The record is a 95-nucleotide sequence from Nicotiana attenuata, which matches "Small nucleolar RNA Z266" in Rfam. The match comes from Rfam's covariance-model search (48 bits). For this family Rfam cites "The high diversity of snoRNAs in plants: identification and comparative study of 120 snoRNA genes from Oryza sativa" (Chen et al., Nucleic Acids Res, 2003). The base pairs follow the family's consensus structure, which was predicted with PFOLD. The source organism's lineage runs through Eukaryota, Magnoliopsida, Solanaceae, Nicotianoideae and Nicotiana. Rfam 15.1 lists 719 matches to the family in 213 species.
RNA sequence: UUACGGCAAGAAUGAAGAAAAAAAAUUAGAUGUGCGAGGGGUGUAUUCCUCUAUGAGCUUAACAUCGAGGCAUAUUUAUAGUUGACUUGCCUUUA
Numbered sequence: 001u002u003a004c005g006g007c008a009a010g011a012a013u014g015a016a017g018a019a020a021a022a023a024a025a026u027u028a029g030a031u032g033u034g035c036g037a038g039g040g041g042u043g044u045a046u047u048c049c050u051c052u053a054u055g056a057g058c059u060u061a062a063c064a065u066c067g068a069g070g071c072a073u074a075u076u077u078a079u080a081g082u083u084g085a086c087u088u089g090c091c092u093u094u095a
Stems, first nucleotide, its partner, number of pairs: 001095001003093001005091006